Rfam assigns this 154-nucleotide RNA from Amborella trichopoda to the family "MIR8565 microRNA precursor family". Taxonomically the source falls in Amborella (Eukaryota, Viridiplantae, Streptophyta, Tracheophyta).
RNA sequence: CCCACUCUCAUGUGCGUAGGACCUCAAUGGAUCACCAUUAAAUUUGGCACAGAUCUCUAGAAAAGUUAUCACAUAAAUGUGAGACUUGAUUUUUCUAGAUAUCUGUGCUAAAUUUAAUGGUGAUCCUUUGGGGUCCUACACACAUAAGUGUGGG
Numbered sequence: 001c002c003c004a005c006u007c008u009c010a011u012g013u014g015c016g017u018a019g020g021a022c023c024u025c026a027a028u029g030g031a032u033c034a035c036c037a038u039u040a041a042a043u044u045u046g047g048c049a050c051a052g053a054u055c056u057c058u059a060g061a062a063a064a065g066u067u068a069u070c071a072c073a074u075a076a077a078u079g080u081g082a083g084a085c086u087u088g089a090u091u092u093u094u095c096u097a098g099a100u101a102u103c104u105g106u107g108c109u110a111a112a113u114u115u116a117a118u119g120g121u122g123a124u125c126c127u128u129u130g131g132g133g134u135c136c137u138a139c140a141c142a143c144a145u146a147a148g149u150g151u152g153g154g
Stems, first nucleotide, its partner, number of pairs: 002153004007148002010145004016139012030125003034121021056099013069082005